Shown here is a 69-nucleotide sequence from Erinaceus europaeus, a member of the family "Small nucleolar RNA SNORD45". The literature on the family includes a 2002 paper in Mol Cell Biol by Galardi et al., "Purified box C/D snoRNPs are able to reproduce site-specific 2'-O-methylation of target RNA in vitro". A search with the family's covariance model found it, with a score of 62 bits. Taxonomically the source falls in Erinaceus (Eukaryota, Eumetazoa, Teleostomi, Amniota). The family has 11 seed sequences and 1,629 matches in Rfam 15.1. It is annotated as a C/D-box small nucleolar RNA. Rfam links the family to the GO terms RNA processing and nucleolus.

RNA sequence: GGUCAAUGUCAUGGCAUGUGUCAGCUGAAUUCAGAAUUGAUGUAAAUUCUGAAGUUACACUGGGAUCUU
Number, nucleotide and partner (000 for none) at each position: 001g067002g066003u065004c064005a000006a000007u000008g000009u000010c000011a000012u000013g000014g000015c000016a000017u000018g000019u000020g000021u000022c000023a000024g000025c000026u000027g000028a000029a000030u000031u000032c000033a000034g000035a000036a000037u000038u000039g000040a000041u000042g000043u000044a000045a000046a000047u000048u000049c000050u000051g000052a000053a000054g000055u000056u000057a000058c000059a000060c000061u000062g000063g000064g004065a003066u002067c001068u000069u000